A member of the RNA family "Y RNA" from Rhinopithecus roxellana, 80 nucleotides long. The family's RNA type in Rfam is non-coding RNA gene. Pairs were carried over by alignment from the consensus structure, which is taken from published work. It scores 38 bits against the family's covariance model. Rfam describes the family as follows. Y RNAs are components of the Ro ribonucleoprotein particle (Ro RNP), in association with Ro60 and La proteins.
[Rfam]
RNA sequence: UGAAAGUCAACGAGUAUUGUGGGUUAUUGUUAAGCUGAUUUAACAUUGUCUCCCCCUACAACCAUGCUUGACUAGCUUUG
Numbered sequence: 001u002g003a004a005a006g007u008c009a010a011c012g013a014g015u016a017u018u019g020u021g022g023g024u025u026a027u028u029g030u031u032a033a034g035c036u037g038a039u040u041u042a043a044c045a046u047u048g049u050c051u052c053c054c055c056c057u058a059c060a061a062c063c064a065u066g067c068u069u070g071a072c073u074a075g076c077u078u079u080g
Stems, first nucleotide, its partner, number of pairs: 002076001005073004012069002016065002018060006028045003032041002